Background: Rfam assigns this 102-nucleotide RNA sequence from Aquisalibacillus elongatus to the family "Purine riboswitch aptamer". Gene Ontology term of the family: purine nucleobase biosynthetic process. The base pairs follow the family's consensus structure, which is taken from published work. Taxonomically the source falls in Aquisalibacillus (Bacteria, Bacillota, Bacilli, Caryophanales).

RNA sequence: AUAAAAAUAUAAGAAACACCUCGUAUAAUAUUGGGGAUAUGGCCCAAGAGUUUCUACCGAACCACCGUAAAUGGUUCGACUACGGGGAUUGCAUAUAACGGA
Numbered sequence: 001a002u003a004a005a006a007a008u009a010u011a012a013g014a015a016a017c018a019c020c021u022c023g024u025a026u027a028a029u030a031u032u033g034g035g036g037a038u039a040u041g042g043c044c045c046a047a048g049a050g051u052u053u054c055u056a057c058c059g060a061a062c063c064a065c066c067g068u069a070a071a072u073g074g075u076u077c078g079a080c081u082a083c084g085g086g087g088a089u090u091g092c093a094u095a096u097a098a099c100g101g102a
Stems, first nucleotide, its partner, number of pairs: 019087007029049001031047005058078007